[Rfam]
RNA sequence: UGCCUAACCCUCUUGAAUUAAAAAUUUAGAGAUAUGGCAUAAAAUCCCAUCCCUGAUACUGAGCUCUUCGUUCAGCUACUCAGGGAUGGGUCGUAUAGGGAAACUUGUAUGGAUGGCCGAAAGGUCGUC
Numbered sequence: 001u002g003c004c005u006a007a008c009c010c011u012c013u014u015g016a017a018u019u020a021a022a023a024a025u026u027u028a029g030a031g032a033u034a035u036g037g038c039a040u041a042a043a044a045u046c047c048c049a050u051c052c053c054u055g056a057u058a059c060u061g062a063g064c065u066c067u068u069c070g071u072u073c074a075g076c077u078a079c080u081c082a083g084g085g086a087u088g089g090g091u092c093g094u095a096u097a098g099g100g101a102a103a104c105u106u107g108u109a110u111g112g113a114u115g116g117c118c119g120a121a122a123g124g125u126c127g128u129c
Stems, first nucleotide, its partner, number of pairs: 001039004010031004015027005046090011058077001059075006092111008112129006

Shown here is a 129-nucleotide RNA sequence, a member of the family "LOOT RNA".